Shown here is a 52-nucleotide RNA from Methylobacterium sp. Leaf99, a member of the family "ffh sRNA". A reference for the family is Meyer et al. (2009), "Identification of candidate structured RNAs in the marine organism 'Candidatus Pelagibacter ubique'", BMC Genomics.
RNA sequence: GAGGCCGGAGGUCAACGCCCGACAGCGCGAUGCGCCCUCGGGCGAGCUUCGC
Number, nucleotide and partner (000 for none) at each position: 001g000002a000003g000004g000005c000006c000007g000008g000009a000010g000011g000012u000013c000014a000015a000016c044017g043018c042019c041020c040021g039022a038023c000024a000025g035026c034027g033028c032029g000030a000031u000032g028033c027034g026035c025036c000037c000038u022039c021040g020041g019042g018043c017044g016045a000046g000047c000048u000049u000050c000051g000052c000
Pairs were carried over by alignment from the consensus structure, which is taken from published work. The source organism's lineage runs through Bacteria, Pseudomonadati, Alphaproteobacteria, Hyphomicrobiales and Methylobacterium.